[Rfam]
RNA sequence: GUAUUCUUCGCGAAUGCUCAAAAUUUACGCCACUCUUCGACGUCGCCGCUCGCUGCUCCCCUAGGGAUGCCGCUGGCUCGUCACGGAUUGGCGCUUGAGUUUUCGAACCAGCGCACACUUCGCCACUAUGAAGCCACGGAAUUCCGUGGCUUUUUG
Numbered sequence: 001g002u003a004u005u006c007u008u009c010g011c012g013a014a015u016g017c018u019c020a021a022a023a024u025u026u027a028c029g030c031c032a033c034u035c036u037u038c039g040a041c042g043u044c045g046c047c048g049c050u051c052g053c054u055g056c057u058c059c060c061c062u063a064g065g066g067a068u069g070c071c072g073c074u075g076g077c078u079c080g081u082c083a084c085g086g087a088u089u090g091g092c093g094c095u096u097g098a099g100u101u102u103u104c105g106a107a108c109c110a111g112c113g114c115a116c117a118c119u120u121c122g123c124c125a126c127u128a129u130g131a132a133g134c135c136a137c138g139g140a141a142u143u144c145c146g147u148g149g150c151u152u153u154u155u156g
Stems, first nucleotide, its partner, number of pairs: 005125001008122001010094003018090001030086002038080003042077003045073002048070002053065001130153010
RNA: Burkholderia sRNA 7